RNA: tRNA
RNA sequence: AGGAGAAUAGUUCCAAUGGUAGAACAAUGGUCUCCAAAACCAAAGGUUAAGGGUUCGAAUCCCUUUUCUCCUG
Numbered sequence: 001a002g003g004a005g006a007a008u009a010g011u012u013c014c015a016a017u018g019g020u021a022g023a024a025c026a027a028u029g030g031u032c033u034c035c036a037a038a039a040c041c042a043a044a045g046g047u048u049a050a051g052g053g054u055u056c057g058a059a060u061c062c063c064u065u066u067u068c069u070c071c072u073g
Stems, first nucleotide, its partner, number of pairs: 001072007010025004028042004049065005